[Rfam]
A member of the RNA family "TPP riboswitch aptamer (THI element)" from Azoarcus olearius, 102 nucleotides long. Rfam links the family to the GO term thiamine pyrophosphate binding. A search with the family's covariance model found it, with a score of 66 bits.
RNA sequence: GCUUGCCGUUAGGGGUGCCCGCGCAAGGUUGCGGCGGGCUGAGAGAGUCCCUCAACACCUGAUCCGGAUCGUGCCGGCGUAGGGAAACGCGUUCAUGAGUUC
Numbered sequence: 001g002c003u004u005g006c007c008g009u010u011a012g013g014g015g016u017g018c019c020c021g022c023g024c025a026a027g028g029u030u031g032c033g034g035c036g037g038g039c040u041g042a043g044a045g046a047g048u049c050c051c052u053c054a055a056c057a058c059c060u061g062a063u064c065c066g067g068a069u070c071g072u073g074c075c076g077g078c079g080u081a082g083g084g085a086a087a088c089g090c091g092u093u094c095a096u097g098a099g100u101u102c
Stems, first nucleotide, its partner, number of pairs: 007089004011052004016046001017039005058083004064077004